This 95-nucleotide sequence from Oryza meridionalis belongs to the Rfam family "Small nucleolar RNA Z157/R69/R10". The literature on the family includes a 2003 paper in Nucleic Acids Res by Chen et al., "The high diversity of snoRNAs in plants: identification and comparative study of 120 snoRNA genes from Oryza sativa". Its Rfam clan is "SNORD52 clan". The family's RNA type in Rfam is C/D-box small nucleolar RNA. The family's consensus secondary structure was predicted with PFOLD.
[Rfam]
RNA sequence: GCUGGAGCGGUGAUGAGCAUUUUUUGUGGACUAGAGUUUCUGACACUACUUUUGUAGUAUUUGAAGACCAAACCCUUGGCUGUCUGAGCUCCUCA
Dot-bracket structure: ...(((((............................((((....(((((....)))))....)))).....................)))))...